[Rfam]
RNA sequence: GCGUUGGUGACCCUGCAUGGUUGCAGGCUUGGACUUCAAAUCCAUGGGGGCUUCGCAGCCCAGCGGUUCAAUUCCGUCUCCGGCGC
Numbered sequence: 001g002c003g004u005u006g007g008u009g010a011c012c013c014u015g016c017a018u019g020g021u022u023g024c025a026g027g028c029u030u031g032g033a034c035u036u037c038a039a040a041u042c043c044a045u046g047g048g049g050g051c052u053u054c055g056c057a058g059c060c061c062a063g064c065g066g067u068u069c070a071a072u073u074c075c076g077u078c079u080c081c082g083g084c085g086c
Stems, first nucleotide, its partner, number of pairs: 001086007009078001012027006028046001030044004048061005063077004